[Rfam]
Eukaryotic large subunit ribosomal RNA: a 539-nucleotide part of an RNA from Hemiselmis andersenii. The organism belongs to Hemiselmis, within Eukaryota.
RNA sequence: GACAGGUCGUCGUGAUAGUAAUUCAACUUAGUACGAGAGGAACCGUUGAUUCAGAUAUUUGGUCUUGGCGCUUGGUUGAGAAGCUAUUGGCGCGGAGCUACCAUCUGUUUGGAAGAUUAUGGCUGAACGCCUCUAAGCCAGAAACCCUGCUAGAAACGACGAUAACAAUACUCUCAGUCUCGAUCAUUGGUAAAUAUAAGAAAGGAUUAAAUUUUUUUCUGCUUUUUUUUUGAAUAGCCUAUGAAAAGAAAAAGAGUUAAAGAUCCUUUUUUCAAUUAAACCGUAGUUAAUCUAAAAAAAAAAAAAAACAUUCAGCGGAAAAAAAACAGGAAAACCGUGCGGAAAAAAAAAACCCGACUGUUUUUUUCCUCCCCCCUUUUAAUGCUGAGAUUUUUUAGAUACUUCCAAAAAACUAAAAACGGGCUGAGAGGAAUGAGAUCACUUGUAGACGACUUGGUUAUGGGACCUGGUAUUGUAAGGAGUAGAGUAGUUUAUAUGCUACGAUCUCUUGAGAUUUAGCCUGGCAUUCCUUGAUCUGU
Numbered sequence: 001g002a003c004a005g006g007u008c009g010u011c012g013u014g015a016u017a018g019u020a021a022u023u024c025a026a027c028u029u030a031g032u033a034c035g036a037g038a039g040g041a042a043c044c045g046u047u048g049a050u051u052c053a054g055a056u057a058u059u060u061g062g063u064c065u066u067g068g069c070g071c072u073u074g075g076u077u078g079a080g081a082a083g084c085u086a087u088u089g090g091c092g093c094g095g096a097g098c099u100a101c102c103a104u105c106u107g108u109u110u111g112g113a114a115g116a117u118u119a120u121g122g123c124u125g126a127a128c129g130c131c132u133c134u135a136a137g138c139c140a141g142a143a144a145c146c147c148u149g150c151u152a153g154a155a156a157c158g159a160c161g162a163u164a165a166c167a168a169u170a171c172u173c174u175c176a177g178u179c180u181c182g183a184u185c186a187u188u189g190g191u192a193a194a195u196a197u198a199a200g201a202a203a204g205g206a207u208u209a210a211a212u213u214u215u216u217u218u219c220u221g222c223u224u225u226u227u228u229u230u231u232g233a234a235u236a237g238c239c240u241a242u243g244a245a246a247a248g249a250a251a252a253a254g255a256g257u258u259a260a261a262g263a264u265c266c267u268u269u270u271u272u273c274a275a276u277u278a279a280a281c282c283g284u285a286g287u288u289a290a291u292c293u294a295a296a297a298a299a300a301a302a303a304a305a306a307a308a309c310a311u312u313c314a315g316c317g318g319a320a321a322a323a324a325a326a327c328a329g330g331a332a333a334a335c336c337g338u339g340c341g342g343a344a345a346a347a348a349a350a351a352a353c354c355c356g357a358c359u360g361u362u363u364u365u366u367u368c369c370u371c372c373c374c375c376c377u378u379u380u381a382a383u384g385c386u387g388a389g390a391u392u393u394u395u396u397a398g399a400u401a402c403u404u405c406c407a408a409a410a411a412a413c414u415a416a417a418a419a420c421g422g423g424c425u426g427a428g429a430g431g432a433a434u435g436a437g438a439u440c441a442c443u444u445g446u447a448g449a450c451g452a453c454u455u456g457g458u459u460a461u462g463g464g465a466c467c468u469g470g471u472a473u474u475g476u477a478a479g480g481a482g483u484a485g486a487g488u489a490g491u492u493u494a495u496a497u498g499c500u501a502c503g504a505u506c507u508c509u510u511g512a513g514a515u516u517u518a519g520c521c522u523g524g525c526a527u528u529c530c531u532u533g534a535u536c537u538g539u
Stems, first nucleotide, its partner, number of pairs: 006163008016152004021051001023049005052107005060100003068093004073086005115145001120140005169432001171430010436537005442456001445453001462529003467524001469521002472515002479509004484505001487502005

Rfam's curators put it in the seed alignment.